Rfam assigns this 90-nucleotide sequence from Paraburkholderia diazotrophica to the family "Burkholderia sRNA 54". The source organism's lineage runs through Bacteria, Pseudomonadati, Betaproteobacteria, Burkholderiaceae and Paraburkholderia. The family has 4 seed sequences and 91 matches in Rfam 15.1. Identified by RNA-seq, RACE and Northern blot. A search with the family's covariance model found it, with a score of 51 bits.
RNA sequence: GAUUCUCUCGGGUUCUGGCAAUGGCCCUCGGAAUGGCCAGAAUCCCUUCGGGCCGGCCCUCAUGGCACCAUGUGGGGCCGGCCUUUUUUC
Dot-bracket structure: .........((((((((((.....((...))....))))))))))....((((((((((...............))))))))))......
Numbered sequence: 001g002a003u004u005c006u007c008u009c010g011g012g013u014u015c016u017g018g019c020a021a022u023g024g025c026c027c028u029c030g031g032a033a034u035g036g037c038c039a040g041a042a043u044c045c046c047u048u049c050g051g052g053c054c055g056g057c058c059c060u061c062a063u064g065g066c067a068c069c070a071u072g073u074g075g076g077g078c079c080g081g082c083c084u085u086u087u088u089u090c
Stems, first nucleotide, its partner, number of pairs: 010045010025031002050084010